[Rfam]
RNA: Small nucleolar RNA SNORA11
Organism: Chionoecetes opilio
RNA sequence: CCUUUUAUCUCAAAUAAAGGCCUCAAACAGGGGCCCUUUAUUUUCAAAUAAAGGGCCUCAAACAGGGGCCCUUUAUCUCAAAAAAGGGCCCCAAACAGGGGCCCUUUAUCUCAAAAUAAAGGGCCUAAAACC
Numbered sequence: 001c002c003u004u005u006u007a008u009c010u011c012a013a014a015u016a017a018a019g020g021c022c023u024c025a026a027a028c029a030g031g032g033g034c035c036c037u038u039u040a041u042u043u044u045c046a047a048a049u050a051a052a053g054g055g056c057c058u059c060a061a062a063c064a065g066g067g068g069c070c071c072u073u074u075a076u077c078u079c080a081a082a083a084a085a086g087g088g089c090c091c092c093a094a095a096c097a098g099g100g101g102c103c104c105u106u107u108a109u110c111u112c113a114a115a116a117u118a119a120a121g122g123g124c125c126u127a128a129a130a131c132c
Base pairs, nucleotide, nucleotide: 002054003053004052005051006050007049008048012043013042014041015040016039017038018037019036020035021033022032023031067125068124069123070122074118075117076116083111085105086104087103089101090100091099092098
Dot-bracket structure: .(((((((...((((((((((((.......))).)))))))))....)))))))............((((...(((......(.(((.((((.....)))).))).....)....)))...)))).......